Shown here is a 105-nucleotide RNA sequence from Bacillus sp. SJS, a member of the family "Purine riboswitch aptamer".
A search with the family's covariance model found it, with a score of 73 bits.
The organism belongs to Bacillus, within Bacteria.
Pairs were carried over by alignment from the consensus structure, which is taken from published work.
RNA sequence: AUUAACCUAAUUUUAUAUCCUUGUAUAAUAUCAGUUAAGAUUCGGUCUGAUAGUUUCUACCUGGCAGCCGCAAAAUGCCGGACUACAAGGAAGUAUGAUCAUAUA
Dot-bracket structure: .................((((((((...((((((............))))))........((((((.........))))))..))))))))..............